Plastid-ndhJ 3UTR RNA: a 61-nucleotide RNA from Rhododendron williamsianum. The family has 50 seed sequences and 869 matches in Rfam 15.1. A reference for the family is Richter et al. (2023), "Retrograde signaling in plants: A critical review focusing on the GUN pathway and beyond", Plant Commun. NCBI's taxonomy places the organism under Eukaryota, Viridiplantae, Streptophytina, eudicotyledons, Rhododendron. A search with the family's covariance model found it, with a score of 45 bits. The family's RNA type in Rfam is cis-regulatory element. From the family's description: Plastid ndhJ is a non-coding RNA (ncRNA) present in plastids. It was identified as a short stem-loop motif in the 3 prime untranslate region (3UTR) of ndhJ gene.

RNA sequence: UCAUGAACAUUGUACAGCACGCACACAUCACUUAGACGGGUUUUAUAAAUUCACGUAGCAA
Numbered sequence: 001u002c003a004u005g006a007a008c009a010u011u012g013u014a015c016a017g018c019a020c021g022c023a024c025a026c027a028u029c030a031c032u033u034a035g036a037c038g039g040g041u042u043u044u045a046u047a048a049a050u051u052c053a054c055g056u057a058g059c060a061a
Stems, first nucleotide, its partner, number of pairs: 023041002026038001028036002